[Rfam]
RNA: T-box leader
Organism: Anaerosalibacter massiliensis
Nucleotides: 204
Stems, first nucleotide, its partner, number of pairs: 007105002015100003025088002028085003038077003049071006107133007135145003168201004179197003183193001
Number, partner (000 for none) and nucleotide at each position: 001000u002000u003000a004000a005000a006000a007105g008104c009000u010000a011000u012000g013000a014000a015100g016099g017098g018000a019000a020000g021000a022000g023000u024000a025088g026087g027000c028085u029084a030083a031000a032000u033000a034000a035000u036000c037000u038077u039076u040075u041000a042000a043000g044000a045000g046000a047000g048000g049071g050070a051069u052068u053067g054066c055000c056000u057000u058000g059000g060000c061000u062000g063000g064000a065000a066054g067053c068052a069051a070050u071049u072000c073000u074000a075040a076039a077038g078000u079000a080000u081000u082000a083030u084029u085028a086000a087026c088025u089000g090000a091000a092000a093000a094000c095000c096000a097000a098017c099016c100015c101000g102000a103000a104008g105007c106000u107133g108132a109131a110130u111129c112128c113127u114000a115000a116000c117000c118000u119000a120000g121000u122000a123000g124000g125000a126000a127113a128112g129111g130110a131109u132108u133107u134000c135145c136144g137143c138000a139000a140000u141000u142000u143137g144136c145135g146000u147000u148000a149000u150000u151000u152000a153000a154000c155000u156000u157000a158000a159000g160000c161000a162000c163000c164000a165000a166000u167000u168201a169200g170199g171198g172000u173000g174000g175000a176000a177000c178000c179197a180196c181195g182000u183193g184000a185000a186000u187000a188000a189000a190000c191000c192000u193183c194000u195181c196180g197179u198171c199170c200169c201168u202000a203000u204000a